[Rfam]
RNA sequence: GCUACUGCUGACAGUCAGUAGUUGGUCUGGCGUGAGCAAGAAUUCUCAGAUCACCUCUUGGCUGUGGGUGGUGCAGUGAG
Numbered sequence: 001g002c003u004a005c006u007g008c009u010g011a012c013a014g015u016c017a018g019u020a021g022u023u024g025g026u027c028u029g030g031c032g033u034g035a036g037c038a039a040g041a042a043u044u045c046u047c048a049g050a051u052c053a054c055c056u057c058u059u060g061g062c063u064g065u066g067g068g069u070g071g072u073g074c075a076g077u078g079a080g
Stems, first nucleotide, its partner, number of pairs: 003073006011065008020056002023053008
Shown here is an 80-nucleotide RNA from Varanus komodoensis, a member of the family "mir-2970 microRNA precursor family". The source organism's lineage runs through Eukaryota, Opisthokonta, Tetrapoda, Varanidae and Varanus. Rfam 15.1 lists 356 matches to the family in 350 species. The match comes from Rfam's covariance-model search (93 bits). On this family, see Gunaratne et al., BMC Genomics 2011: "Song exposure regulates known and novel microRNAs in the zebra finch auditory forebrain".